Record summary
SAM riboswitch aptamer (S box leader): a 111-nucleotide RNA from Salinibacillus xinjiangensis. Gene Ontology term of the family: regulation of gene expression. It scores 97 bits against the family's covariance model.

RNA sequence: UUCUUAUCCAGAGAGGUGGAGGGAAAGGCCCUGCGAAACCUCGGCAACGGACUUUUUAUUAGUACCGUGCCAAUUCCUACAAGUUGAUGGGAUCAACUUGAAAGAUAAGAA
Numbered sequence: 001u002u003c004u005u006a007u008c009c010a011g012a013g014a015g016g017u018g019g020a021g022g023g024a025a026a027g028g029c030c031c032u033g034c035g036a037a038a039c040c041u042c043g044g045c046a047a048c049g050g051a052c053u054u055u056u057u058a059u060u061a062g063u064a065c066c067g068u069g070c071c072a073a074u075u076c077c078u079a080c081a082a083g084u085u086g087a088u089g090g091g092a093u094c095a096a097c098u099u100g101a102a103a104g105a106u107a108a109g110a111a
Stems, first nucleotide, its partner, number of pairs: 001111008013042005021031003026078003043071004048067002051063003075103001080100008
Source information: The organism belongs to Salinibacillus, within Bacteria.